[Rfam]
Nucleotides: 087
Base pairs, nucleotide, nucleotide: 012037013036017032018031020029021028022027040081041080042079043078045077046076047075048072049071050070055066056065057064058063
Number, partner (000 for none) and nucleotide at each position: 001000c002000a003000c004000u005000g006000u007000a008000a009000a010000g011000g012037g013036c014000a015000a016000a017032c018031c019000a020029c021028g022027c023000g024000a025000a026000a027022g028021c029020g030000c031018g032017g033000g034000a035000c036013g037012c038000a039000a040081a041080g042079u043078c044000a045077u046076u047075g048072a049071u050070c051000u052000a053000c054000a055066g056065g057064g058063c059000c060000a061000a062000c063058g064057c065056c066055c067000c068000a069000g070050g071049a072048u073000a074000g075047c076046a077045a078043g079042a080041c081040u082000g083000c084000c085000a086000g087000c
The family of this 87-nucleotide RNA from Nitrosomonas halophila is "c-di-GMP-I riboswitch aptamer".
A reference for the family is Sudarsan et al. (2008), "Riboswitches in Eubacteria Sense the Second Messenger Cyclic Di-GMP", Science.
Lineage of the source: Bacteria > Pseudomonadota > Betaproteobacteria > Nitrosomonadales > Nitrosomonas.